Mason-Pfizer monkey virus packaging signal: a 285-nucleotide RNA sequence from Sciurus vulgaris. The family's consensus secondary structure was predicted with PFOLD.
RNA sequence: UGGCACCCAACGGUUUGGCUUUGGAUACGGGGGAAUUCAUGAGGGAAGAGGCGUGUAAGUGUUCGGCCAAAGGAAAAAAAAAAGGGAAAGUCAGUUGACAAAGAUCGCUGCGGGAGCCUGCCGCGCCGUUCUUAAAGGUACAGUAGCGCCUAAGUAUGGGACAAGAAUUAAGUAAGCAUAAAGUUUUUGUUAAGCAAUUAAAAGAAGCUUUAAAGACAUGGGGAGUAAAGGCAAAGAGUAAUGUUCUUUUUAAGUUUUUUGACCUUAUUAAGGACACCUGUCCGU
Numbered sequence: 001u002g003g004c005a006c007c008c009a010a011c012g013g014u015u016u017g018g019c020u021u022u023g024g025a026u027a028c029g030g031g032g033g034a035a036u037u038c039a040u041g042a043g044g045g046a047a048g049a050g051g052c053g054u055g056u057a058a059g060u061g062u063u064c065g066g067c068c069a070a071a072g073g074a075a076a077a078a079a080a081a082a083a084g085g086g087a088a089a090g091u092c093a094g095u096u097g098a099c100a101a102a103g104a105u106c107g108c109u110g111c112g113g114g115a116g117c118c119u120g121c122c123g124c125g126c127c128g129u130u131c132u133u134a135a136a137g138g139u140a141c142a143g144u145a146g147c148g149c150c151u152a153a154g155u156a157u158g159g160g161a162c163a164a165g166a167a168u169u170a171a172g173u174a175a176g177c178a179u180a181a182a183g184u185u186u187u188u189g190u191u192a193a194g195c196a197a198u199u200a201a202a203a204g205a206a207g208c209u210u211u212a213a214a215g216a217c218a219u220g221g222g223g224a225g226u227a228a229a230g231g232c233a234a235a236g237a238g239u240a241a242u243g244u245u246c247u248u249u250u251u252a253a254g255u256u257u258u259u260u261g262a263c264c265u266u267a268u269u270a271a272g273g274a275c276a277c278c279u280g281u282c283c284g285u
Stems, first nucleotide, its partner, number of pairs: 006033003012028001016027002038050001040048001091138002095135002104130001106128001109125005144164001146162001149160004169212003172208002219261008229247003234242001270285001272283004